[Rfam]
RNA sequence: AUUAAUAUGCCGCUCCGAGCCUUUUUGCCUAAAGCGCUUUUAGCCAGGGCAUCAGGCUGUUAGGGUAAAUCUGGAAACGGGUUUGCCUCCCGUGGUUGGAAAGGAGCUUUAAACUACUGUCA
Numbered sequence: 001a002u003u004a005a006u007a008u009g010c011c012g013c014u015c016c017g018a019g020c021c022u023u024u025u026u027g028c029c030u031a032a033a034g035c036g037c038u039u040u041u042a043g044c045c046a047g048g049g050c051a052u053c054a055g056g057c058u059g060u061u062a063g064g065g066u067a068a069a070u071c072u073g074g075a076a077a078c079g080g081g082u083u084u085g086c087c088u089c090c091c092g093u094g095g096u097u098g099g100a101a102a103g104g105a106g107c108u109u110u111a112a113a114c115u116a117c118u119g120u121c122a
Stems, first nucleotide, its partner, number of pairs: 003116002006113001012107005019057004025051001027050003034044002063088011089099002
RNA: Molybdenum/Tungsten riboswitch aptamer (Moco RNA motif)